[Rfam]
RNA sequence: UUGUUUGCAGGUGCAGCAGCAUCAAGAUUCACAUACAAAACAUCUUUAACUGGUGUAAUUAACCACACUGAUCAGUGAUUAGUGAAGUGUUUAAUUGGUAUUGAGAAUCUUGAUGAUGCUGCAUCAGCAAUAAA
Numbered sequence: 001u002u003g004u005u006u007g008c009a010g011g012u013g014c015a016g017c018a019g020c021a022u023c024a025a026g027a028u029u030c031a032c033a034u035a036c037a038a039a040a041c042a043u044c045u046u047u048a049a050c051u052g053g054u055g056u057a058a059u060u061a062a063c064c065a066c067a068c069u070g071a072u073c074a075g076u077g078a079u080u081a082g083u084g085a086a087g088u089g090u091u092u093a094a095u096u097g098g099u100a101u102u103g104a105g106a107a108u109c110u111u112g113a114u115g116a117u118g119c120u121g122c123a124u125c126a127g128c129a130a131u132a133a134a
Stems, first nucleotide, its partner, number of pairs: 010125009020115011032103002
The record is a 134-nucleotide RNA from Trifolium subterraneum, which matches "mir-172 microRNA precursor family" in Rfam. From the family's description: mir-172 has been experimentally verified in Arabidopsis thaliana. This family is thought to target mRNAs coding for APETALA2-like transcription factors. The mature sequence is excised from the 3' arm of the hairpin. The family has 11 seed sequences and 2,076 matches in Rfam 15.1.